Shown here is a 134-nucleotide RNA from Caryophanon tenue, a member of the family "FMN riboswitch aptamer (RFN element)".
A search with the family's covariance model found it, with a score of 106 bits.
The organism belongs to Caryophanon, within Bacteria.
About the family: The RFN element is a highly conserved domain that is found frequently in the 5'-untranslated regions of prokaryotic mRNAs that encode for flavin mononucleotide (FMN) biosynthesis and transport proteins.
RNA sequence: AGUUGUCUUCGGGGUCGGGUGAAAAUCCCAGCCGGUAGUGAUUGAGCACAGUCUCAUAAGCCUACGAGCGGUUCGCCGCAGGAUUUGGUGAAAUUCCAAAGCCGACAGUAAAGUCUGGAUGGGAGAAGGCAUAG
Numbered sequence: 001a002g003u004u005g006u007c008u009u010c011g012g013g014g015u016c017g018g019g020u021g022a023a024a025a026u027c028c029c030a031g032c033c034g035g036u037a038g039u040g041a042u043u044g045a046g047c048a049c050a051g052u053c054u055c056a057u058a059a060g061c062c063u064a065c066g067a068g069c070g071g072u073u074c075g076c077c078g079c080a081g082g083a084u085u086u087g088g089u090g091a092a093a094u095u096c097c098a099a100a101g102c103c104g105a106c107a108g109u110a111a112a113g114u115c116u117g118g119a120u121g122g123g124a125g126a127a128g129g130c131a132u133a134g
Base pairs, nucleotide, nucleotide: 004131005130006129007128008127009126010125017029018028019027031114032113033104034103035065036064037063038062060102061101068079069078070077084100085099086098087097088096106117107116108115